[Rfam]
RNA sequence: AGUGCAGGAUAGUGUGUAUCGGUGUUAUGCUCUUCUACUAUGCAUUUCUAGCCGAAAGUGUUUUCUGCUACAUUAAGUUUGGAGAAAAUGGGCAGUUGGACCCCAAUCUUUUCAUUGGGUAUGUCAACAAUCAUUUUUCCGAUAUUC
Dot-bracket structure: ...((((((....((((((....................))))))................).)))))...........((((.(((((((...((((..........................))))..)))))))))))......

The record is a 147-nucleotide RNA from Phoenix dactylifera, which matches "small nucleolar RNA snoR135" in Rfam. Its family is annotated with nucleolus and RNA processing in the Gene Ontology. For this family Rfam cites "Mining small RNA sequencing data: a new approach to identify small nucleolar RNAs in Arabidopsis" (Chen and Wu, Nucleic Acids Res, 2009). It is annotated as an H/ACA-box small nucleolar RNA. The match comes from Rfam's covariance-model search (92 bits).